[Rfam]
A member of the RNA family "Small nucleolar RNA SNORD83" from Lipotes vexillifer, 70 nucleotides long. A reference for the family is Jady and Kiss (2000), "Characterisation of the U83 and U84 small nucleolar RNAs: two novel 2'-O-ribose methylation guide RNAs that lack complementarities to ribosomal RNAs", Nucleic Acids Res. Gene Ontology terms of the family: RNA processing and nucleolus. By type it is a C/D-box small nucleolar RNA. The family's consensus secondary structure was predicted with PFOLD. The organism belongs to Lipotes, within Eukaryota. It scores 35 bits against the family's covariance model.
RNA sequence: GCUACAUGAUGCAUUCAGAACCAGGAGUGCUUGUUGUUAAGAUGACCUUUAUCAUCCUUGACCGAUAGCC
Number, nucleotide and partner (000 for none) at each position: 001g069002c068003u067004a066005c000006a000007u000008g000009a000010u000011g000012c000013a000014u000015u000016c000017a000018g000019a000020a000021c000022c000023a000024g000025g000026a000027g037028u036029g035030c000031u000032u000033g000034u000035u029036g028037u027038u000039a000040a000041g000042a000043u000044g000045a000046c000047c000048u000049u000050u000051a000052u000053c000054a000055u000056c000057c000058u000059u000060g000061a000062c000063c000064g000065a000066u004067a003068g002069c001070c000